Background
mir-11 microRNA precursor family: a 72-nucleotide sequence from Ignelater luminosus. The match comes from Rfam's covariance-model search (54 bits). The literature on the family includes a 2009 paper in BMC Genomics by Li et al., "Direct sequencing and expression analysis of a large number of miRNAs in Aedes aegypti and a multi-species survey of novel mosquito miRNAs". Its Rfam clan is "mir-6 clan".

[Rfam]
RNA sequence: UUGCGUUCUGGGACUAUGUCUGUGACUUGUGUAAAUUAUAAUCACAUCACAGGCAGAGUUCUAGGUACGCAU
Numbered sequence: 001u002u003g004c005g006u007u008c009u010g011g012g013a014c015u016a017u018g019u020c021u022g023u024g025a026c027u028u029g030u031g032u033a034a035a036u037u038a039u040a041a042u043c044a045c046a047u048c049a050c051a052g053g054c055a056g057a058g059u060u061c062u063a064g065g066u067a068c069g070c071a072u
Stems, first nucleotide, its partner, number of pairs: 004069003008064008020052006029045003